[Rfam]
RNA sequence: AGCUGAUGCACAUGGCGGUCUUCUUCCUCCCAGUACCGCCGCAGCAGCUGUUCCCCUCUGGAGGUUUUGAACCUUCACACCUAAAAGGGCCUGGUUCUCCAGUGGCCCUUUUUU
Numbered sequence: 001a002g003c004u005g006a007u008g009c010a011c012a013u014g015g016c017g018g019u020c021u022u023c024u025u026c027c028u029c030c031c032a033g034u035a036c037c038g039c040c041g042c043a044g045c046a047g048c049u050g051u052u053c054c055c056c057u058c059u060g061g062a063g064g065u066u067u068u069g070a071a072c073c074u075u076c077a078c079a080c081c082u083a084a085a086a087g088g089g090c091c092u093g094g095u096u097c098u099c100c101a102g103u104g105g106c107c108c109u110u111u112u113u114u
Stems, first nucleotide, its partner, number of pairs: 001049005007043003015039004059077007085109001087107002090104001091102004
Dot-bracket structure: (((((.(((.....((((.................)))).))).))))).........(((((((.....))))))).......(.((.(((((....)))).).)).).....